[Rfam]
RNA sequence: GAGUUUGUCGCCGUGGCAAGGCUAACUCGUGUUUCGCGAGGGAGUCAUAGGGAAACCAAGAAGCCCGCAGCGCUUUGCGUGAGGGGCCGCGUGUUAACUCGCGUGAAGUCACCGCGACAUGAUCCGAAACCGGUCGAUCCUGGCCUGGCUAGGUUGAAGCGGCGCGAAAGCUCCGUGGAGGACCGUACCGCUGCUGCGAUGCAAGCGCUCGGAUAAGCUAGGUCAAGGGGUGAAAUGUCAAUCGAGAUCGGUGAUGGCUGGUU
Numbered sequence: 001g002a003g004u005u006u007g008u009c010g011c012c013g014u015g016g017c018a019a020g021g022c023u024a025a026c027u028c029g030u031g032u033u034u035c036g037c038g039a040g041g042g043a044g045u046c047a048u049a050g051g052g053a054a055a056c057c058a059a060g061a062a063g064c065c066c067g068c069a070g071c072g073c074u075u076u077g078c079g080u081g082a083g084g085g086g087c088c089g090c091g092u093g094u095u096a097a098c099u100c101g102c103g104u105g106a107a108g109u110c111a112c113c114g115c116g117a118c119a120u121g122a123u124c125c126g127a128a129a130c131c132g133g134u135c136g137a138u139c140c141u142g143g144c145c146u147g148g149c150u151a152g153g154u155u156g157a158a159g160c161g162g163c164g165c166g167a168a169a170g171c172u173c174c175g176u177g178g179a180g181g182a183c184c185g186u187a188c189c190g191c192u193g194c195u196g197c198g199a200u201g202c203a204a205g206c207g208c209u210c211g212g213a214u215a216a217g218c219u220a221g222g223u224c225a226a227g228g229g230g231u232g233a234a235a236u237g238u239c240a241a242u243c244g245a246g247a248u249c250g251g252u253g254a255u256g257g258c259u260g261g262u263u
Base pairs, nucleotide, nucleotide: 006119007118008117009116010115011114013112014111015110016109017108020046021045022044023043026040027039028038029037050057051056063087064086065085066084070080071079072078073077090103091102092101093100123261124260126258130251131250132249133248134247135246139227141225142224143223144222145221146220147219148218149217150215152184153183154182155181159176160175161174162173164171165170188212189211190210193208194207196206197205229239230238231237
Archaeal large subunit ribosomal RNA: a 263-nucleotide part of an RNA from Nanohaloarchaea archaeon H01. The organism belongs to Candidatus Nanohaloarchaea, within Archaea.